[Rfam]
The family of this 230-nucleotide sequence from Quercus lobata is "Early nodulin 40". It is annotated as a non-coding RNA gene. Its family is annotated with nodulation in the Gene Ontology. NCBI's taxonomy places the organism under Eukaryota, Euphyllophyta, Pentapetalae, Fagales, Quercus. The base pairs follow the family's consensus structure, which is taken from published work.
RNA sequence: AUGGAAUUCUGCUACUGAUAUAAAUCCAUCCAUGGGUCCUUAAAAAGCAUGGGGUUGGAGUGAGGGCUUCAUCACCCUCACUCUGCUCCUACAUUCAAAAGUUUGCCUUUGCAUAGUCAUUUACCUCAGCACAUGAAGAAGAAGAAGCACAUUAAUUCUCUUUUAGUGGUACUGGUCUUUGGCUGAAGCAUGGCAAACCGGCAAGUCAGAAAACGGCAUCAGAUAGUCUU
Numbered sequence: 001a002u003g004g005a006a007u008u009c010u011g012c013u014a015c016u017g018a019u020a021u022a023a024a025u026c027c028a029u030c031c032a033u034g035g036g037u038c039c040u041u042a043a044a045a046a047g048c049a050u051g052g053g054g055u056u057g058g059a060g061u062g063a064g065g066g067c068u069u070c071a072u073c074a075c076c077c078u079c080a081c082u083c084u085g086c087u088c089c090u091a092c093a094u095u096c097a098a099a100a101g102u103u104u105g106c107c108u109u110u111g112c113a114u115a116g117u118c119a120u121u122u123a124c125c126u127c128a129g130c131a132c133a134u135g136a137a138g139a140a141g142a143a144g145a146a147g148c149a150c151a152u153u154a155a156u157u158c159u160c161u162u163u164u165a166g167u168g169g170u171a172c173u174g175g176u177c178u179u180u181g182g183c184u185g186a187a188g189c190a191u192g193g194c195a196a197a198c199c200g201g202c203a204a205g206u207c208a209g210a211a212a213a214c215g216g217c218a219u220c221a222g223a224u225a226g227u228c229u230u
Stems, first nucleotide, its partner, number of pairs: 057087002101198006120187002222228002